[Rfam]
RNA sequence: AGGUGUUUUUCCUCAAUGACACGUUUUCUCCCGGAUUGCUGAAAAUAUUAUUAUGCAACCGGGAAUUUCGUGUCAGCCACGAAUGACACCG
Numbered sequence: 001a002g003g004u005g006u007u008u009u010u011c012c013u014c015a016a017u018g019a020c021a022c023g024u025u026u027u028c029u030c031c032c033g034g035a036u037u038g039c040u041g042a043a044a045a046u047a048u049u050a051u052u053a054u055g056c057a058a059c060c061g062g063g064a065a066u067u068u069c070g071u072g073u074c075a076g077c078c079a080c081g082a083a084u085g086a087c088a089c090c091g
Base pairs, nucleotide, nucleotide: 002090003089004088005087006086007085009083010082011081017075018074019073020072021071022070023069029064030063031062032061033060034059036058037057038056039055042054043052
RNA: mir-731 microRNA precursor family
Organism: Menidia menidia